[Rfam]
RNA: Plant small nucleolar RNA U3
RNA sequence: ACGACCUUACUUGAACAGGAUCUGUUCUAUAGGCUCGUACAACUGUAUCCUUGAGUUCUAAGGAGACAGGAACCAAAGUCUGGUUGAUGAACACUGACCGUGUGAUCAGAGCGUGAUUAAUAGUCGUCCGAUUGACCUUCGGGUUCAUCAGAUCGACGGUGGAGGAUCGUUCUCAGCGGGUAUCACCGGCUGGGGUGGUCACACGGUUGUCUGACAGGCU
Numbered sequence: 001a002c003g004a005c006c007u008u009a010c011u012u013g014a015a016c017a018g019g020a021u022c023u024g025u026u027c028u029a030u031a032g033g034c035u036c037g038u039a040c041a042a043c044u045g046u047a048u049c050c051u052u053g054a055g056u057u058c059u060a061a062g063g064a065g066a067c068a069g070g071a072a073c074c075a076a077a078g079u080c081u082g083g084u085u086g087a088u089g090a091a092c093a094c095u096g097a098c099c100g101u102g103u104g105a106u107c108a109g110a111g112c113g114u115g116a117u118u119a120a121u122a123g124u125c126g127u128c129c130g131a132u133u134g135a136c137c138u139u140c141g142g143g144u145u146c147a148u149c150a151g152a153u154c155g156a157c158g159g160u161g162g163a164g165g166a167u168c169g170u171u172c173u174c175a176g177c178g179g180g181u182a183u184c185a186c187c188g189g190c191u192g193g194g195g196u197g198g199u200c201a202c203a204c205g206g207u208u209g210u211c212u213g214a215c216a217g218g219c220u
Stems, first nucleotide, its partner, number of pairs: 001038002003035001005033003013027006043069004048064006078219005097207012111170003123157003126153003130149003134145004171195007179187002